Record summary:
A member of the RNA family "Bacterial large subunit ribosomal RNA" from Halovibrio variabilis, 265 nucleotides of a longer RNA. On this family, see Cannone et al., BMC Bioinformatics 2002: "The comparative RNA web (CRW) site: an online database of comparative sequence and structure information for ribosomal, intron, and other RNAs". A search with the family's covariance model found it, with a score of 2864 bits.

[Rfam]
RNA sequence: GGAUGUUUGAGAAGGGCUGCUCCUAGUACGAGAGGACCGGAGUGGACGACCCUCUGGUGUUCCGGUUGUCACGCCAGUGGCAUUGCCGGGUAGCUAUGGUCGGACGGGAUAACCGCUGAAAGCAUCUAAGCGGGAAGCCCCCUUCAAGAUGAGACAUCCCUGAGGCCUAGAGCCUCCUGAAGGGCCCAGCGAGACCAGCUGGUUGAUAGGCACGGUGUGGAAGCGCUGCAAGGCGUUGAGCUAACGUGUACUAAUGGCCCGUGAG
Numbered sequence: 001g002g003a004u005g006u007u008u009g010a011g012a013a014g015g016g017c018u019g020c021u022c023c024u025a026g027u028a029c030g031a032g033a034g035g036a037c038c039g040g041a042g043u044g045g046a047c048g049a050c051c052c053u054c055u056g057g058u059g060u061u062c063c064g065g066u067u068g069u070c071a072c073g074c075c076a077g078u079g080g081c082a083u084u085g086c087c088g089g090g091u092a093g094c095u096a097u098g099g100u101c102g103g104a105c106g107g108g109a110u111a112a113c114c115g116c117u118g119a120a121a122g123c124a125u126c127u128a129a130g131c132g133g134g135a136a137g138c139c140c141c142c143u144u145c146a147a148g149a150u151g152a153g154a155c156a157u158c159c160c161u162g163a164g165g166c167c168u169a170g171a172g173c174c175u176c177c178u179g180a181a182g183g184g185c186c187c188a189g190c191g192a193g194a195c196c197a198g199c200u201g202g203u204u205g206a207u208a209g210g211c212a213c214g215g216u217g218u219g220g221a222a223g224c225g226c227u228g229c230a231a232g233g234c235g236u237u238g239a240g241c242u243a244a245c246g247u248g249u250a251c252u253a254a255u256g257g258c259c260c261g262u263g264a265g
Base pairs, nucleotide, nucleotide: 001159002158003157004156005155006154007153008152011145012144013143014142017045018044019043020042021041022040023039047102048101049100050099051098055096056095057094062089063088064087065086066085067082068081069080070079071078072077106140107139108138113133114132115131116130117129162176163175164174165173166172179262182260183259184258185257186202187201188200189199190198207253208252209251210249211248212247213246214245217241220237223236224235225234226233227232